[Rfam]
RNA sequence: GAAGCAGGCCAGACCGCCGCUGGUGCACCACGCCGCAAGGCGGCACUGGAGGAAGGUCCGGACUGCACAGGGCAGCGUAGCAGCUAACGGCUGUCCACCGCGAGGUGAGGAUCAGAGCAACAGAGACGAGUCCAUGAGCUUCGGCUCAUGGGGUGAAACGGGCAAUCUCUACGCGCAGCAACACCAAAUAGGCCGGCGAUGAUGUGGCUCCGCGGAGCCGGCGGGUAGGUGGCAUCGAGCCGUGCGAGCGAUCCACGGCCCAGAGGAAUGGCGGUCACGGCCGACGCGCCCGCAAGGGCGCCGAGGCCGCACAGAAUCCGGCCCAUCGGCCUGCUUCACAA
Numbered sequence: 001g002a003a004g005c006a007g008g009c010c011a012g013a014c015c016g017c018c019g020c021u022g023g024u025g026c027a028c029c030a031c032g033c034c035g036c037a038a039g040g041c042g043g044c045a046c047u048g049g050a051g052g053a054a055g056g057u058c059c060g061g062a063c064u065g066c067a068c069a070g071g072g073c074a075g076c077g078u079a080g081c082a083g084c085u086a087a088c089g090g091c092u093g094u095c096c097a098c099c100g101c102g103a104g105g106u107g108a109g110g111a112u113c114a115g116a117g118c119a120a121c122a123g124a125g126a127c128g129a130g131u132c133c134a135u136g137a138g139c140u141u142c143g144g145c146u147c148a149u150g151g152g153g154u155g156a157a158a159c160g161g162g163c164a165a166u167c168u169c170u171a172c173g174c175g176c177a178g179c180a181a182c183a184c185c186a187a188a189u190a191g192g193c194c195g196g197c198g199a200u201g202a203u204g205u206g207g208c209u210c211c212g213c214g215g216a217g218c219c220g221g222c223g224g225g226u227a228g229g230u231g232g233c234a235u236c237g238a239g240c241c242g243u244g245c246g247a248g249c250g251a252u253c254c255a256c257g258g259c260c261c262a263g264a265g266g267a268a269u270g271g272c273g274g275u276c277a278c279g280g281c282c283g284a285c286g287c288g289c290c291c292g293c294a295a296g297g298g299c300g301c302c303g304a305g306g307c308c309g310c311a312c313a314g315a316a317u318c319c320g321g322c323c324c325a326u327c328g329g330c331c332u333g334c335u336u337c338a339c340a341a
Base pairs, nucleotide, nucleotide: 001337002336003335004334005333006332007331008330009329010328011326012276013275014274015273016272017271018270020049021048022047023046024045025044026043055323056322058321059320060319061318062317063178064177065176066175070210071209072208073207075174076173077172078171079170080094081093082092083091084090095109096107097106098105099104110169111168115167116166117163118162132152133151134149135148136147137146138145139144182231183230184229185228192222193221194220195219196218197217203214204213205212206211239259240258241257242256243255244254246253247252

A member of the RNA family "Bacterial RNase P class A" from Azohydromonas caseinilytica, 341 nucleotides long. It scores 194 bits against the family's covariance model. The source organism's lineage runs through Bacteria, Pseudomonadati, Pseudomonadota, Sphaerotilaceae and Azohydromonas.